A member of the RNA family "R2 RNA element" from Agrilus planipennis, 197 nucleotides long. From the family's description: This family represents the 3' UTR region of the R2 retrotransposable element. This family is known to interact with the R2-encoded reverse transcriptase in a reaction known as target primed reverse transcription (TPRT). A search with the family's covariance model found it, with a score of 42 bits. The literature on the family includes a 2004 paper in RNA by Ruschak et al., "Secondary structure models of the 3' untranslated regions of diverse R2 RNAs".
RNA sequence: ACUUAAUCUAACUACCAUAUUGGUACAGAAUUUCGUAUGCUAGGAGGUCGACUGAAGAGGACCUUCAUUGGUCCUAGAACGGCCUGAGGUAGAGGGGUUUUAGUCGGUAGGUCCGAGGACUUCUUCCUCGGGAAUCCGACACUACCCAGUCGUACGGAAGGCUGGGUGUCUUUUGAAAAUUCCCCUCUUCCACGAAA
Numbered sequence: 001a002c003u004u005a006a007u008c009u010a011a012c013u014a015c016c017a018u019a020u021u022g023g024u025a026c027a028g029a030a031u032u033u034c035g036u037a038u039g040c041u042a043g044g045a046g047g048u049c050g051a052c053u054g055a056a057g058a059g060g061a062c063c064u065u066c067a068u069u070g071g072u073c074c075u076a077g078a079a080c081g082g083c084c085u086g087a088g089g090u091a092g093a094g095g096g097g098u099u100u101u102a103g104u105c106g107g108u109a110g111g112u113c114c115g116a117g118g119a120c121u122u123c124u125u126c127c128u129c130g131g132g133a134a135u136c137c138g139a140c141a142c143u144a145c146c147c148a149g150u151c152g153u154a155c156g157g158a159a160g161g162c163u164g165g166g167u168g169u170c171u172u173u174u175g176a177a178a179a180u181u182c183c184c185c186u187c188u189u190c191c192a193c194g195a196a197a
Base pairs, nucleotide, nucleotide: 001024002023003022005020032196033195034194035193036192088191089190091188092187094185095184096183103140104139105138106137107136112132113131114130115129116128117127118126119125142168144167145166146165147164148163